[Rfam]
RNA sequence: AUAAACAAUGAUGAGUAAUUUUUUACAGUUACAGACCUGUAAUGAUUUGCGAAAAUGAUCGCAAAAAAUUGAACAUCUAAGGGACUGAGUUUGU
Numbered sequence: 001a002u003a004a005a006c007a008a009u010g011a012u013g014a015g016u017a018a019u020u021u022u023u024u025a026c027a028g029u030u031a032c033a034g035a036c037c038u039g040u041a042a043u044g045a046u047u048u049g050c051g052a053a054a055a056u057g058a059u060c061g062c063a064a065a066a067a068a069u070u071g072a073a074c075a076u077c078u079a080a081g082g083g084a085c086u087g088a089g090u091u092u093g094u
Stems, first nucleotide, its partner, number of pairs: 002093005